A member of the RNA family "Selenocysteine transfer RNA" from Chelydra serpentina, 82 nucleotides long. A search with the family's covariance model found it, with a score of 54 bits.

[Rfam]
RNA sequence: AGGUGAUCCUCAGUGGUCUGGGGUGCAGGCUUCAAACUUGUAGCUGUCUAGCAACAGAGUGGUUCAAUUCCACCUCUUAUCU
Numbered sequence: 001a002g003g004u005g006a007u008c009c010u011c012a013g014u015g016g017u018c019u020g021g022g023g024u025g026c027a028g029g030c031u032u033c034a035a036a037c038u039u040g041u042a043g044c045u046g047u048c049u050a051g052c053a054a055c056a057g058a059g060u061g062g063u064u065c066a067a068u069u070c071c072a073c074c075u076c077u078u079a080u081c082u
Stems, first nucleotide, its partner, number of pairs: 001078003005074001008023006024042006044057004059073004